[Rfam]
RNA sequence: AAAAAGGGUGCUCGUCCUGGCACGUUUCCGAUCACGAAACUGAAGUGCGGACGCAUUGCGCCGCAAGAGCGUCUCCUUCGCUCCGCCCCUGGACUUCCGGGGGUGGGCGGGGGCGAGCGUUCUAUUGCCGCCUUCGACGCCUCCUUGCGCGCCCAGUGGGGUAUGGCUUUGCAUAUCCAGUGCGUAAUUUUUGUAUUUGGGGCCGCGGCUGCACAUUGUGGAUUGCUCGGGGAUUCCCGGAUCUCCCUGCGUGCCAGUGCGCUGCGCCCCG
Numbered sequence: 001a002a003a004a005a006g007g008g009u010g011c012u013c014g015u016c017c018u019g020g021c022a023c024g025u026u027u028c029c030g031a032u033c034a035c036g037a038a039a040c041u042g043a044a045g046u047g048c049g050g051a052c053g054c055a056u057u058g059c060g061c062c063g064c065a066a067g068a069g070c071g072u073c074u075c076c077u078u079c080g081c082u083c084c085g086c087c088c089c090u091g092g093a094c095u096u097c098c099g100g101g102g103g104u105g106g107g108c109g110g111g112g113g114c115g116a117g118c119g120u121u122c123u124a125u126u127g128c129c130g131c132c133u134u135c136g137a138c139g140c141c142u143c144c145u146u147g148c149g150c151g152c153c154c155a156g157u158g159g160g161g162u163a164u165g166g167c168u169u170u171g172c173a174u175a176u177c178c179a180g181u182g183c184g185u186a187a188u189u190u191u192u193g194u195a196u197u198u199g200g201g202g203c204c205g206c207g208g209c210u211g212c213a214c215a216u217u218g219u220g221g222a223u224u225g226c227u228c229g230g231g232g233a234u235u236c237c238c239g240g241a242u243c244u245c246c247c248u249g250c251g252u253g254c255c256a257g258u259g260c261g262c263u264g265c266g267c268c269c270c271g
Stems, first nucleotide, its partner, number of pairs: 008183005013053005054158005060152002062149006159178007200269004205265005211260004